Shown here is a 68-nucleotide RNA from Oceanobacillus halophilus, a member of the family "Bacillaceae-1 RNA".
RNA sequence: AUUAGGGGGCUUUCGACUAAGUGCCGACACGUCCUGUGCCGAACGUCAAAGUCACUACAUCCUGUAAA
Numbered sequence: 001a002u003u004a005g006g007g008g009g010c011u012u013u014c015g016a017c018u019a020a021g022u023g024c025c026g027a028c029a030c031g032u033c034c035u036g037u038g039c040c041g042a043a044c045g046u047c048a049a050a051g052u053c054a055c056u057a058c059a060u061c062c063u064g065u066a067a068a
Base pairs, nucleotide, nucleotide: 011051012050013049015047016046017045026040028038029037030036056066057065058064

By type it is a small RNA. The match comes from Rfam's covariance-model search (46 bits).